[Rfam]
RNA: TPP riboswitch aptamer (THI element)
RNA sequence: GUAACUCGCCGGGGGUGCCUGUGCACGGGGCACGGGCUGAGAUUAUACCCUUGGAACCUGAACGGGUCAUGCCGUUGAGGGAGGCGAUCCCUUCUUCGG
Numbered sequence: 001g002u003a004a005c006u007c008g009c010c011g012g013g014g015g016u017g018c019c020u021g022u023g024c025a026c027g028g029g030g031c032a033c034g035g036g037c038u039g040a041g042a043u044u045a046u047a048c049c050c051u052u053g054g055a056a057c058c059u060g061a062a063c064g065g066g067u068c069a070u071g072c073c074g075u076u077g078a079g080g081g082a083g084g085c086g087a088u089c090c091c092u093u094c095u096u097c098g099g
Stems, first nucleotide, its partner, number of pairs: 006087005011051004016045001017037008057080003062075004